This 30-nucleotide RNA sequence from Halanaeroarchaeum sulfurireducens belongs to the Rfam family "CRISPR RNA direct repeat element". Its family is annotated with defense response in the Gene Ontology.

RNA sequence: GUUCCAGACGGACCCUUGAGGGGUUGAAGC
Number, nucleotide and partner (000 for none) at each position: 001g000002u000003u000004c000005c000006a000007g000008a000009c000010g000011g025012a024013c023014c022015c021016u000017u000018g000019a000020g000021g015022g014023g013024u012025u011026g000027a000028a000029g000030c000